The family of this 74-nucleotide sequence from Drosophila persimilis is "mir-2 microRNA precursor family". Rfam 15.1 lists 918 matches to the family in 280 species. The literature on the family includes a 2001 paper in Science by Lee and Ambros, "An extensive class of small RNAs in Caenorhabditis elegans". The sequence is in the family's curated seed alignment. Gene Ontology terms of the family: RISC complex and miRNA-mediated post-transcriptional gene silencing.
RNA sequence: AGUGUCAUCAAAAAUGGCUGAAGAAAGAUAUAUUUGCAUUUGAAGCGUAUCACAGCCAGCUUUGAUGGGCAUUG
Number, nucleotide and partner (000 for none) at each position: 001a000002g000003u000004g000005u068006c067007a066008u065009c064010a063011a062012a061013a000014a000015u058016g057017g056018c055019u054020g053021a000022a000023g051024a050025a000026a000027g000028a048029u047030a000031u000032a000033u000034u000035u000036g000037c000038a000039u000040u000041u000042g000043a000044a000045g000046c000047g029048u028049a000050u024051c023052a000053c020054a019055g018056c017057c016058a015059g000060c000061u012062u011063u010064g009065a008066u007067g006068g005069g000070c000071a000072u000073u000074g000